RNA sequence: UCCUUUCUUUAUAUUAGAAUAAGGGCGAAAGGAG
Numbered sequence: 001u002c003c004u005u006u007c008u009u010u011a012u013a014u015u016a017g018a019a020u021a022a023g024g025g026c027g028a029a030a031g032g033a034g
Stems, first nucleotide, its partner, number of pairs: 001025005008018003

Background: Rfam assigns this 34-nucleotide RNA to the family "L31-Firmicutes ribosomal protein leader". For this family Rfam cites "Discovery of 20 novel ribosomal leader candidates in bacteria and archaea" (Eckert and Weinberg, BMC Microbiol, 2020). The sequence is in the family's curated seed alignment. The family is grouped with related families in Rfam's "Ribosomal Protein L31 Leader clan".